[Rfam]
RNA sequence: GUAAUGUUUCUUGCUCAAAUGAGUAUUCCAAUCACAGUUGCAUUUGCAUGUAUAUCAGUCCAAAAUAUAGAGUAUAGUCUAUAUAUAUAGUCUCUGUUUACUGUAAGUUUGGCUGAUAAUGCUUCUGUUUCUGAGAUGCUCAUUUGAACAAGCAAUGUUAA
Numbered sequence: 001g002u003a004a005u006g007u008u009u010c011u012u013g014c015u016c017a018a019a020u021g022a023g024u025a026u027u028c029c030a031a032u033c034a035c036a037g038u039u040g041c042a043u044u045u046g047c048a049u050g051u052a053u054a055u056c057a058g059u060c061c062a063a064a065a066u067a068u069a070g071a072g073u074a075u076a077g078u079c080u081a082u083a084u085a086u087a088u089a090g091u092c093u094c095u096g097u098u099u100a101c102u103g104u105a106a107g108u109u110u111g112g113c114u115g116a117u118a119a120u121g122c123u124u125c126u127g128u129u130u131c132u133g134a135g136a137u138g139c140u141c142a143u144u145u146g147a148a149c150a151a152g153c154a155a156u157g158u159u160a161a
Stems, first nucleotide, its partner, number of pairs: 004158005010152004015147013029133002
Dot-bracket structure: ...(((((.((((.(((((((((((((.((.....................................................................................................)).))))))))))))).)))).)))))...